[Rfam]
RNA: c-di-GMP-I riboswitch aptamer
Organism: Ornithinibacillus caprae
Nucleotides: 086
Stems, first nucleotide, its partner, number of pairs: 012037002017032006040080004045076003048071003055065004
Number, partner (000 for none) and nucleotide at each position: 001000c002000u003000u004000c005000g006000a007000u008000a009000a010000u011000a012037g013036c014000a015000a016000a017032c018031u019030c020029a021028u022027u023000g024000a025000a026000a027022g028021g029020u030019g031018g032017g033000g034000a035000c036013g037012c038000a039000a040080a041079g042078c043077u044000a045076c046075g047074g048071g049070c050069c051000u052000a053000a054000u055065g056064a057063g058062a059000u060000a061000u062058u063057u064056u065055c066000u067000a068000c069050g070049g071048c072000a073000g074047c075046c076045g077043g078042g079041u080040u081000a082000c083000c084000g085000a086000a